The family of this 346-nucleotide RNA from Roseburia sp. 1XD42-69 is "Bacterial RNase P class A". Ribonuclease P (RNase P) is a ubiquitous endoribonuclease, found in archaea, bacteria and eukarya as well as chloroplasts and mitochondria. Its best characterised activity is the generation of mature 5'-ends of tRNAs by cleaving the 5'-leader elements of precursor-tRNAs. Cellular RNase Ps are ribonucleoproteins. RNA from bacterial RNase Ps retains its catalytic activity in the absence of the protein subunit, i.e. it is a ribozyme. Isolated eukaryotic and archaeal RNase P RNA has not been shown to retain its catalytic function, but is still essential for the catalytic activity of the holoenzyme. Although the archaeal and eukaryotic holoenzyme s have a much greater protein content than the bacterial ones, the RNA cores from all the three lineages are homologous -- helices corresponding to P1, P2, P3, P4, and P10/11 are common to all cellular RNase P RNAs. Yet, there is considerable sequence variation, particularly among the eukaryotic RNAs. Identified in Yersinia as Ysr151/RnpB. The family's RNA type in Rfam is ribozyme. The family's consensus secondary structure is taken from published work.
RNA sequence: UAAGUAGAAUAAAUGAUCGCGGCUGCAGAGACGAAAGGCUGCAGGUGAGGAAAGUCCGGGCUUCACAGGGCAGGAUGCCGGAUAACGUCCGGUGGAGGUGACUCCAAGGAAAGUGCAACAGAAAUAAACUACUCCGGAAACGGAGAAAAGGUGGAAAGGCAGUGUAAGAGACUACCGCCCUUCUGGUAACAGAGGGGGCACAUGUAAACCCCAUCCGAAGCAAGACCGAAACAAAGCGUUGACGUGGCCCGCCAGCUUUAGGUAGGUUGCUUGAUGUGGCUGGCAACAGUCAUACUAGAUAGAUGAUCAUUCACGACAUAACCCGGCUUAUCGUUCUGCUUAUUCU
Numbered sequence: 001u002a003a004g005u006a007g008a009a010u011a012a013a014u015g016a017u018c019g020c021g022g023c024u025g026c027a028g029a030g031a032c033g034a035a036a037g038g039c040u041g042c043a044g045g046u047g048a049g050g051a052a053a054g055u056c057c058g059g060g061c062u063u064c065a066c067a068g069g070g071c072a073g074g075a076u077g078c079c080g081g082a083u084a085a086c087g088u089c090c091g092g093u094g095g096a097g098g099u100g101a102c103u104c105c106a107a108g109g110a111a112a113g114u115g116c117a118a119c120a121g122a123a124a125u126a127a128a129c130u131a132c133u134c135c136g137g138a139a140a141c142g143g144a145g146a147a148a149a150g151g152u153g154g155a156a157a158g159g160c161a162g163u164g165u166a167a168g169a170g171a172c173u174a175c176c177g178c179c180c181u182u183c184u185g186g187u188a189a190c191a192g193a194g195g196g197g198g199c200a201c202a203u204g205u206a207a208a209c210c211c212c213a214u215c216c217g218a219a220g221c222a223a224g225a226c227c228g229a230a231a232c233a234a235a236g237c238g239u240u241g242a243c244g245u246g247g248c249c250c251g252c253c254a255g256c257u258u259u260a261g262g263u264a265g266g267u268u269g270c271u272u273g274a275u276g277u278g279g280c281u282g283g284c285a286a287c288a289g290u291c292a293u294a295c296u297a298g299a300u301a302g303a304u305g306a307u308c309a310u311u312c313a314c315g316a317c318a319u320a321a322c323c324c325g326g327c328u329u330a331u332c333g334u335u336c337u338g339c340u341u342a343u344u345c346u
Stems, first nucleotide, its partner, number of pairs: 001342010011331001012311007020047002023044006052329003056326005061220004068249002071246001073216005078092005093107001094105004108211002113209002115205003129150002132145005158176002161173003177199001178197008224268004233259005241253001243251002275294008